[Rfam]
RNA sequence: GGCGCUCUGGAAAGAUCGGACCCCGCAAGGGGCCCGGCGCCGACGGAGUAAGGAGGCCGCGCUUGCGUCCCGUCCCGAACGGGCCGCGCAGCAAAUCCUCUGAAUCUCUCAGGUUCCAUGGACAGAGGGGGGUCA
Numbered sequence: 001g002g003c004g005c006u007c008u009g010g011a012a013a014g015a016u017c018g019g020a021c022c023c024c025g026c027a028a029g030g031g032g033c034c035c036g037g038c039g040c041c042g043a044c045g046g047a048g049u050a051a052g053g054a055g056g057c058c059g060c061g062c063u064u065g066c067g068u069c070c071c072g073u074c075c076c077g078a079a080c081g082g083g084c085c086g087c088g089c090a091g092c093a094a095a096u097c098c099u100c101u102g103a104a105u106c107u108c109u110c111a112g113g114u115u116c117c118a119u120g121g122a123c124a125g126a127g128g129g130g131g132g133u134c135a
Stems, first nucleotide, its partner, number of pairs: 003129001005127005016037004039114003042110002046108003052101005
Dot-bracket structure: ..(.(((((......((((..............)))).(((((..(((...(((((........................................)))))....))))).)))........))))).)......

Shown here is a 135-nucleotide sequence from Roseococcus sp. SYP-B2431, a member of the family "Glycine riboswitch aptamer". The organism belongs to Roseococcus, within Bacteria. A search with the family's covariance model found it, with a score of 38 bits. Gene Ontology term of the family: glycine biosynthetic process.